[Rfam]
RNA sequence: UCUCAUGCUGUGACCCUCUAGGGGGAAGUGCUUUCUGGUGUCUGAAAAAAAUAGAAUGCGCUUCCCUUUAGAUGGUUACUGUGUGGGA
Numbered sequence: 001u002c003u004c005a006u007g008c009u010g011u012g013a014c015c016c017u018c019u020a021g022g023g024g025g026a027a028g029u030g031c032u033u034u035c036u037g038g039u040g041u042c043u044g045a046a047a048a049a050a051a052u053a054g055a056a057u058g059c060g061c062u063u064c065c066c067u068u069u070a071g072a073u074g075g076u077u078a079c080u081g082u083g084u085g086g087g088a
Base pairs, nucleotide, nucleotide: 001088002087003086004085005084007082008081010079011078012077013076014075017072018071020069021068022067023066024065025064026063027062028061029060030059031058033056034055035054038052039051

The record is an 88-nucleotide RNA from Cebus imitator, which matches "mir-515 microRNA precursor family" in Rfam. The source organism's lineage runs through Eukaryota, Vertebrata, Euteleostomi, Sarcopterygii and Cebus. On this family, see Bentwich et al., Nat Genet 2005: "Identification of hundreds of conserved and nonconserved human microRNAs". Gene Ontology terms of the family: miRNA-mediated post-transcriptional gene silencing and RISC complex. Pairs were carried over by alignment from the consensus structure, which was predicted with RNAalifold. The match comes from Rfam's covariance-model search (76 bits).